[Rfam]
Nucleotides: 075
Stems, first nucleotide, its partner, number of pairs: 001063008011033008039053004044075005
Number, partner (000 for none) and nucleotide at each position: 001063c002062c003061c004060g005059c006058c007057u008056c009000u010000a011033g012032c013031u014030g015029u016028g017027g018026u019000c020000u021000g022000a023000u024000c025000c026018a027017c028016c029015a030014c031013g032012g033011c034000g035000a036000a037000c038000a039053g040052c041051c042050g043000c044075c045074c046073c047072u048071u049000a050042c051041g052040g053039u054000c055000u056008g057007g058006g059005g060004c061003g062002g063001g064000g065000a066000a067000a068000c069000u070000u071048a072047a073046g074045g075044g